[Rfam]
RNA sequence: UAAAUUAAAUACGUUAUACCGAAGACAGUAGGUGCGGUGAUCCGCUUAAAUUUCCUGCCGAGGUGUGUGAAUAAACAGUCCAGCAUCGUUGCUGUGCUGACAUACGUACCUCCAUGUCUUCAUGGGGGUACUUUUAUUUUAUGUAA
Numbered sequence: 001u002a003a004a005u006u007a008a009a010u011a012c013g014u015u016a017u018a019c020c021g022a023a024g025a026c027a028g029u030a031g032g033u034g035c036g037g038u039g040a041u042c043c044g045c046u047u048a049a050a051u052u053u054c055c056u057g058c059c060g061a062g063g064u065g066u067g068u069g070a071a072u073a074a075a076c077a078g079u080c081c082a083g084c085a086u087c088g089u090u091g092c093u094g095u096g097c098u099g100a101c102a103u104a105c106g107u108a109c110c111u112c113c114a115u116g117u118c119u120u121c122a123u124g125g126g127g128g129u130a131c132u133u134u135u136a137u138u139u140u141a142u143g144u145a146a
Base pairs, nucleotide, nucleotide: 028058029057030056031055032054034045035044036043106131107130108129109128110127111126112125113124114123115122

The record is a 146-nucleotide RNA sequence from Halobacillus andaensis, which matches "Ribosomal protein L10 leader" in Rfam. This family is a putative r-protein leader autoregulatory structure found in B. subtilis and other low-GC Gram-positive bacteria. It is annotated as a cis-regulatory leader. Pairs were carried over by alignment from the consensus structure, which was predicted with CMfinder.